[Rfam]
RNA sequence: UGUCCUCGGAGACCAAGUGUGGGUGUGGCCUGGGACAUUGUCAUGGCGACCCAUCCUUGGUUUCCAUGGCUA
Dot-bracket structure: .(.((...((((((.((...((((...(((..............))).))))...)).))))))...)).).
mir-551 microRNA precursor family: a 72-nucleotide RNA sequence from Clupea harengus. The base pairs follow the family's consensus structure, which was predicted with RNAalifold. The family has 29 seed sequences and 1,097 matches in Rfam 15.1. It scores 61 bits against the family's covariance model. A reference for the family is Shao et al. (2008), "Identification of novel chicken microRNAs and analysis of their genomic organization", Gene. Its family is annotated with miRNA-mediated post-transcriptional gene silencing and RISC complex in the Gene Ontology. Taxonomically the source falls in Clupea (Eukaryota, Bilateria, Actinopterygii, Clupeidae).